[Rfam]
Rfam assigns this 127-nucleotide RNA sequence from Castor canadensis to the family "Small nucleolar RNA SNORA27". Rfam 15.1 lists 819 matches to the family in 543 species. About the family: ACA27 is a member of the H/ACA class of snoRNA that guide the sites of modification of uridines to pseudouridines.
RNA sequence: AUACCUCCUUUCACUUUGCCAACUGGACUCAUGUCUUUAUUAGUCAUUCAAUUGGGGCAAAGUAAAUAAUCUUUUAAAACUCAGGCAAACAGAGUGUUUGUACUAUAAUCUGUCAGAGGAAAAAAAU
Numbered sequence: 001a002u003a004c005c006u007c008c009u010u011u012c013a014c015u016u017u018g019c020c021a022a023c024u025g026g027a028c029u030c031a032u033g034u035c036u037u038u039a040u041u042a043g044u045c046a047u048u049c050a051a052u053u054g055g056g057g058c059a060a061a062g063u064a065a066a067u068a069a070u071c072u073u074u075u076a077a078a079a080c081u082c083a084g085g086c087a088a089a090c091a092g093a094g095u096g097u098u099u100g101u102a103c104u105a106u107a108a109u110c111u112g113u114c115a116g117a118g119g120a121a122a123a124a125a126a127u
Stems, first nucleotide, its partner, number of pairs: 032059005040051002043048001070119005085101006
Gene Ontology terms of the family: RNA processing and nucleolus. NCBI's taxonomy places the organism under Eukaryota, Opisthokonta, Metazoa, Boreoeutheria, Castor. A search with the family's covariance model found it, with a score of 122 bits.